[Rfam]
RNA sequence: CAGAGUUAGCAAUAAUACCCUUUUAGGGUGCUCGAGUGUUCCCUCCCGCGGAUGUGGAGACUUAAGCUCGGGAAUCCAUCCUAGAGACGCUACUCUG
Number, nucleotide and partner (000 for none) at each position: 001c097002a096003g095004a094005g093006u092007u000008a000009g090010c089011a000012a000013u000014a000015a000016u000017a000018c000019c000020c000021u000022u000023u000024u083025a082026g081027g080028g079029u078030g077031c072032u071033c070034g069035a068036g067037u066038g000039u000040u000041c000042c000043c059044u058045c057046c056047c000048g000049c000050g000051g000052a000053u000054g000055u000056g046057g045058a044059g043060a000061c000062u000063u000064a000065a000066g037067c036068u035069c034070g033071g032072g031073a000074a000075u000076c000077c030078a029079u028080c027081c026082u025083a024084g000085a000086g000087a000088c000089g010090c009091u000092a006093c005094u004095c003096u002097g001
Annotation:
DUF3800-V RNA: a 97-nucleotide sequence. It is one of the family's seed sequences.